The record is a 185-nucleotide RNA from Sedimenticola thiotaurini, which matches "6S / SsrS RNA" in Rfam. The base pairs follow the family's consensus structure, which is taken from published work. E. coli 6S RNA was the first non coding RNA to be sequenced, but its function was unknown until recently. It consists of 184 nucleotides that fold into an extended hairpin structure with a large single-stranded internal bulge. The 6S RNA specifically associates with RNA polymerase holoenzyme containing the sigma70 specificity factor. The organism belongs to Sedimenticola, within Bacteria. A search with the family's covariance model found it, with a score of 84 bits.
[Rfam]
RNA sequence: UAUCCCCUGCAGUGUUUGUAAGCGAAUCGGGUAUUUUCUUGAGCCUAUUCAUUACCCCGGGGACUUAAUAGGAGUGCCAUUGUGCAUGUCCGCCCCCGAGCGGAAAGCCUUAAGCCUCCUUGUCGUCCCCACUUGAACCUACUGGUUCAAGAACGAUGAUUUGCUACGGCACAGGUGGGGGGUAC
Numbered sequence: 001u002a003u004c005c006c007c008u009g010c011a012g013u014g015u016u017u018g019u020a021a022g023c024g025a026a027u028c029g030g031g032u033a034u035u036u037u038c039u040u041g042a043g044c045c046u047a048u049u050c051a052u053u054a055c056c057c058c059g060g061g062g063a064c065u066u067a068a069u070a071g072g073a074g075u076g077c078c079a080u081u082g083u084g085c086a087u088g089u090c091c092g093c094c095c096c097c098g099a100g101c102g103g104a105a106a107g108c109c110u111u112a113a114g115c116c117u118c119c120u121u122g123u124c125g126u127c128c129c130c131a132c133u134u135g136a137a138c139c140u141a142c143u144g145g146u147u148c149a150a151g152a153a154c155g156a157u158g159a160u161u162u163g164c165u166a167c168g169g170c171a172c173a174g175g176u177g178g179g180g181g182g183u184a185c
Stems, first nucleotide, its partner, number of pairs: 002183009012172004017168003036153003040149006059130003063126002068121001070120005078114001084108002089104005